A member of the RNA family "Lysine riboswitch aptamer" from Alteromonadales bacterium alter-6D02, 177 nucleotides long. Riboswitches are metabolite binding domains within certain messenger RNAs that serve as precision sensors for their corresponding targets.

RNA sequence: AAGGCCAGAAGAGGAGCGUUAGCCAGGUAAUUGCAAAGAGAAGUCCAAACUUCCAUGACUUGCAAUGAUGGGGACUAGCGCCGAGGGGAAGUGAUUUUUGGAUAAUCAUUACUCUGGGCAUUAAGGCUGAAUCCUUAAUGACUGUCACCUAAUUAUUGGUGGAGAGCUUCUGGCCUU
Numbered sequence: 001a002a003g004g005c006c007a008g009a010a011g012a013g014g015a016g017c018g019u020u021a022g023c024c025a026g027g028u029a030a031u032u033g034c035a036a037a038g039a040g041a042a043g044u045c046c047a048a049a050c051u052u053c054c055a056u057g058a059c060u061u062g063c064a065a066u067g068a069u070g071g072g073g074a075c076u077a078g079c080g081c082c083g084a085g086g087g088g089a090a091g092u093g094a095u096u097u098u099u100g101g102a103u104a105a106u107c108a109u110u111a112c113u114c115u116g117g118g119c120a121u122u123a124a125g126g127c128u129g130a131a132u133c134c135u136u137a138a139u140g141a142c143u144g145u146c147a148c149c150u151a152a153u154u155a156u157u158g159g160u161g162g163a164g165a166g167c168u169u170c171u172g173g174c175c176u177u
Base pairs, nucleotide, nucleotide: 006172007171008170009169010168011167016081017080018079019078020077021076022075024073030066031065032064033063034062035061036060085115086114087113088112090110091109092108093107094106095105096104116143117142119140120139121138122137123136124135125134126133145162146161147160148159149158151156

A search with the family's covariance model found it, with a score of 109 bits. Lineage of the source: Bacteria > Pseudomonadati > Pseudomonadota > Gammaproteobacteria > Alteromonadales.